[Rfam]
RNA sequence: GGCCGGGGCAGGCUGGACGGAGCCCUGGGGUCUGCGCUGUAGCGCAGACCCCAGGGCUCCGGCCAGCCUGCCCCGGCC
Numbered sequence: 001g002g003c004c005g006g007g008g009c010a011g012g013c014u015g016g017a018c019g020g021a022g023c024c025c026u027g028g029g030g031u032c033u034g035c036g037c038u039g040u041a042g043c044g045c046a047g048a049c050c051c052c053a054g055g056g057c058u059c060c061g062g063c064c065a066g067c068c069u070g071c072c073c074c075g076g077c078c
Stems, first nucleotide, its partner, number of pairs: 001078009011068002016063001018061013032047005
Shown here is a 78-nucleotide sequence from Pelecanoides urinatrix, a member of the family "Epstein-Barr virus stable intronic sequence RNA 2". On this family, see Moss et al., RNA Biol 2014: "RNA families in Epstein-Barr virus". Lineage of the source: Eukaryota > Bilateria > Sarcopterygii > Archosauria > Pelecanoides.